[Rfam]
The family of this 380-nucleotide part of an RNA from Ferroplasma acidarmanus is "Archaeal large subunit ribosomal RNA". The organism belongs to Ferroplasma acidarmanus, within Archaea.

RNA sequence: AAAAGUAGCAGAAUAGAAUGGUGAAAAUCCAUUCCGCCGAAAGGGCAAAGGUUCCUUGGCAAUGUUCGUCAGCCGAGGGUUAGCCGAUCCUAAGGUCACCCCUAACAGGAAGUGAUCGAAAGGGAAGCUGGUUAAUAUUCCAGCGCCUCAGGUGUUUUGCCAUAUAUAUACGCUUUGGGAUAGAGAGUGUAUGCUUGUCUACGUAUGGGUAUUUAUAAGUAAAUGGAGAGUUGUAAUGACGAGAAGUUUACAAAGUAAUAUCUGUUCCCGUAUGGGAAUUUUUUCAAGUCCCGGAGUCUAUGAAAGAUAUAUAUGGGUCAAGCCUGAGUUCGUACCAAGAACCGACACAGGUGCCCCUAGAUGAAUAGUCUAAGGCGUUU
Numbered sequence: 001a002a003a004a005g006u007a008g009c010a011g012a013a014u015a016g017a018a019u020g021g022u023g024a025a026a027a028u029c030c031a032u033u034c035c036g037c038c039g040a041a042a043g044g045g046c047a048a049a050g051g052u053u054c055c056u057u058g059g060c061a062a063u064g065u066u067c068g069u070c071a072g073c074c075g076a077g078g079g080u081u082a083g084c085c086g087a088u089c090c091u092a093a094g095g096u097c098a099c100c101c102c103u104a105a106c107a108g109g110a111a112g113u114g115a116u117c118g119a120a121a122g123g124g125a126a127g128c129u130g131g132u133u134a135a136u137a138u139u140c141c142a143g144c145g146c147c148u149c150a151g152g153u154g155u156u157u158u159g160c161c162a163u164a165u166a167u168a169u170a171c172g173c174u175u176u177g178g179g180a181u182a183g184a185g186a187g188u189g190u191a192u193g194c195u196u197g198u199c200u201a202c203g204u205a206u207g208g209g210u211a212u213u214u215a216u217a218a219g220u221a222a223a224u225g226g227a228g229a230g231u232u233g234u235a236a237u238g239a240c241g242a243g244a245a246g247u248u249u250a251c252a253a254a255g256u257a258a259u260a261u262c263u264g265u266u267c268c269c270g271u272a273u274g275g276g277a278a279u280u281u282u283u284u285c286a287a288g289u290c291c292c293g294g295a296g297u298c299u300a301u302g303a304a305a306g307a308u309a310u311a312u313a314u315g316g317g318u319c320a321a322g323c324c325u326g327a328g329u330u331c332g333u334a335c336c337a338a339g340a341a342c343c344g345a346c347a348c349a350g351g352u353g354c355c356c357c358u359a360g361a362u363g364a365a366u367a368g369u370c371u372a373a374g375g376c377g378u379u380u
Base pairs, nucleotide, nucleotide: 016034017033018032019031020030021029035377036376037375038374043356044355045354046353050335054078055077056076057075058074059073063071064070085332086331087330089123090122094117095116096115097114098113099112101109102108127144128143129142130141131140147328148327149326150325151324152323166310167309168308172297173296174295175294176293177292178291179290180289183285184284185283186282187281188207189206190205191204192203193202211259212258213257220250221249222248223247224246230240231239232238269274342351343350358372359371360370361369
Pairs were carried over by alignment from the consensus structure, which is taken from published work.